[Rfam]
Small nucleolar RNA SNORD70: an 89-nucleotide RNA from Otolemur garnettii. Rfam describes the family as follows. snoRNA HBII-234 belongs to the C/D family of snoRNAs. It is the human orthologue of the mouse MBII-234 and is predicted to guide 2'O-ribose methylation of the small 18S rRNA on position A512. It is hosted, together with HBII-95, by the core C/D box snoRNA protein encoding gene NOP5/NOP58. For this family Rfam cites "RNomics: an experimental approach that identifies 201 candidates for novel, small, non-messenger RNAs in mouse" (Huttenhofer et al., EMBO J, 2001). The base pairs follow the family's consensus structure. The family has 21 seed sequences and 1,085 matches in Rfam 15.1.
RNA sequence: UUCAUUGUUGUCUAUGAUGUAUUCCUGUUGGAACUGAAUCUGAGUGAUCUAACUCAAAUGUUCGUCACUACCACUGAGACAGCAAUGAC
Numbered sequence: 001u002u003c004a005u006u007g008u009u010g011u012c013u014a015u016g017a018u019g020u021a022u023u024c025c026u027g028u029u030g031g032a033a034c035u036g037a038a039u040c041u042g043a044g045u046g047a048u049c050u051a052a053c054u055c056a057a058a059u060g061u062u063c064g065u066c067a068c069u070a071c072c073a074c075u076g077a078g079a080c081a082g083c084a085a086u087g088a089c
Base pairs, nucleotide, nucleotide: 002088003087004086005085006084007083008082009081010080011079012078